[Rfam]
RNA sequence: GGUUGGACGGUAUUUCUUAAUAUCGUUUUCAAGAACGAACUUCUUGGGUGGGAAGUC
Numbered sequence: 001g002g003u004u005g006g007a008c009g010g011u012a013u014u015u016c017u018u019a020a021u022a023u024c025g026u027u028u029u030c031a032a033g034a035a036c037g038a039a040c041u042u043c044u045u046g047g048g049u050g051g052g053a054a055g056u057c
Base pairs, nucleotide, nucleotide: 003032004031005030006027007026008025009024010023011022012021013020014019039056040055041054042053043052044051